[Rfam]
Description:
This 73-nucleotide sequence from Herpetosiphon geysericola belongs to the Rfam family "tRNA". The source organism's lineage runs through Bacteria, Bacillati, Herpetosiphonales, Herpetosiphonaceae and Herpetosiphon.

RNA sequence: UCCCUGAUAGCUCAGUUGGUAGAGCGGUUGACUGUUAAUCAGCAUGUCCUAGGUUCGAGUCCUAGUCAGGGAG
Numbered sequence: 001u002c003c004c005u006g007a008u009a010g011c012u013c014a015g016u017u018g019g020u021a022g023a024g025c026g027g028u029u030g031a032c033u034g035u036u037a038a039u040c041a042g043c044a045u046g047u048c049c050u051a052g053g054u055u056c057g058a059g060u061c062c063u064a065g066u067c068a069g070g071g072a073g
Base pairs, nucleotide, nucleotide: 001072002071003070004069005068006067007066010025011024012023013022027043028042029041030040031039049065050064051063052062053061
The family's consensus secondary structure is taken from published work.
It is annotated as a transfer RNA.